[Rfam]
RNA sequence: GCGGGGGUAACCAAGCUUGGUCAAAGGUGCCAGACUCAAGAUCUGGUCCCGUAGGGGUUCAAGGGUUCAAAUCCCUUCCCCCGCA
Number, nucleotide and partner (000 for none) at each position: 001g084002c083003g082004g081005g080006g079007g078008u000009a000010a028011c027012c026013a000014a000015g000016c000017u000018u000019g000020g000021u000022c000023a000024a000025a000026g012027g011028u010029g000030c046031c045032a044033g043034a042035c000036u000037c000038a000039a000040g000041a000042u034043c033044u032045g031046g030047u000048c000049c000050c000051g000052u000053a000054g000055g000056g000057g000058u000059u000060c000061a077062a076063g075064g074065g073066u000067u000068c000069a000070a000071a000072u000073c065074c064075c063076u062077u061078c007079c006080c005081c004082c003083g002084c001085a000

tRNA: an 85-nucleotide RNA from candidate division MSBL1 archaeon SCGC-AAA261F17. The family is grouped with related families in Rfam's "tRNA clan". Lineage of the source: Archaea > Methanobacteriati > Methanobacteriota > candidate division MSBL1. A search with the family's covariance model found it, with a score of 57 bits.